The family of this 108-nucleotide sequence from Bacillus sp. SJS is "PyrR binding site". By type it is a cis-regulatory element. It scores 59 bits against the family's covariance model. The organism belongs to Bacillus, within Bacteria. The base pairs follow the family's consensus structure, which is taken from published work. This family represents the PyrR binding site and terminator structure.
RNA sequence: ACCGCCUUUUAAAUAAAGUCCAGAGAGACUUGAAAGGGUGUAAAGAAAGGCCUGAUGGCCCUUCUGUUUUCCUGCACCCUGAACCGGAUUGUUCAGGGUGUUUUUAUU
Numbered sequence: 001a002c003c004g005c006c007u008u009u010u011a012a013a014u015a016a017a018g019u020c021c022a023g024a025g026a027g028a029c030u031u032g033a034a035a036g037g038g039u040g041u042a043a044a045g046a047a048a049g050g051c052c053u054g055a056u057g058g059c060c061c062u063u064c065u066g067u068u069u070u071c072c073u074g075c076a077c078c079c080u081g082a083a084c085c086g087g088a089u090u091g092u093u094c095a096g097g098g099u100g101u102u103u104u105u106a107u108u
Base pairs, nucleotide, nucleotide: 005037006036007035008034009033016031017030018029019028020027040069042067044065045064046063047062049060050059051058052057074101075100076099077098078097079096080095081094082093083092084091